RNA sequence: UUUGGCCGGGAUCGCCCCCCGUCAGCGCGUUGCGCCCACGGGGGAGAUUGGC
Numbered sequence: 001u002u003u004g005g006c007c008g009g010g011a012u013c014g015c016c017c018c019c020c021g022u023c024a025g026c027g028c029g030u031u032g033c034g035c036c037c038a039c040g041g042g043g044g045a046g047a048u049u050g051g052c
Base pairs, nucleotide, nucleotide: 016044017043018042019041020040021039022038025035026034027033028032

A member of the RNA family "ffh sRNA" from Roseobacter sp. AzwK-3b, 52 nucleotides long. Pairs were carried over by alignment from the consensus structure, which is taken from published work. The literature on the family includes a 2009 paper in BMC Genomics by Meyer et al., "Identification of candidate structured RNAs in the marine organism 'Candidatus Pelagibacter ubique'". It is one of the family's seed sequences.